The record is a 138-nucleotide RNA sequence from Triticum aestivum, which matches "Small nucleolar RNA snoR77" in Rfam. For this family Rfam cites "Experimental RNomics: identification of 140 candidates for small non-messenger RNAs in the plant Arabidopsis thaliana" (Marker et al., Curr Biol, 2002). By type it is an H/ACA-box small nucleolar RNA. NCBI's taxonomy places the organism under Eukaryota, Streptophyta, Magnoliopsida, Poales, Triticum. Its family is annotated with nucleolus and RNA processing in the Gene Ontology. A search with the family's covariance model found it, with a score of 78 bits.
[Rfam]
RNA sequence: AGGCAGCCCUUUUGUCUGAUUACAAUGGUAAUUGUGGUGUUGCAUUGCCCGGAGAGUGAAUCUUCUGCUCUUCAGAUUAGCUGAGGGGAGGCUCUGGCUUCCCUCUCUGAAGCUUGUCUAGUAGUCUUAUUAAACAAG
Numbered sequence: 001a002g003g004c005a006g007c008c009c010u011u012u013u014g015u016c017u018g019a020u021u022a023c024a025a026u027g028g029u030a031a032u033u034g035u036g037g038u039g040u041u042g043c044a045u046u047g048c049c050c051g052g053a054g055a056g057u058g059a060a061u062c063u064u065c066u067g068c069u070c071u072u073c074a075g076a077u078u079a080g081c082u083g084a085g086g087g088g089a090g091g092c093u094c095u096g097g098c099u100u101c102c103c104u105c106u107c108u109g110a111a112g113c114u115u116g117u118c119u120a121g122u123a124g125u126c127u128u129a130u131u132a133a134a135c136a137a138g
Stems, first nucleotide, its partner, number of pairs: 002041004007037002009034001012031005064129001067126001069124001074119004080113003085105003